[Rfam]
Nucleotides: 061
Stems, first nucleotide, its partner, number of pairs: 002016003029047008
Number, partner (000 for none) and nucleotide at each position: 001000c002016g003015g004014u005000c006000g007000g008000c009000a010000g011000u012000u013000c014004a015003c016002c017000c018000a019000g020000g021000c022000g023000u024000c025000g026000c027000c028000a029047u030046c031045c032044c033043u034042g035041u036040u037000g038000u039000c040036a041035a042034c043033a044032g045031g046030g047029g048000c049000g050000c051000u052000a053000a054000a055000c056000c057000u058000g059000c060000c061000a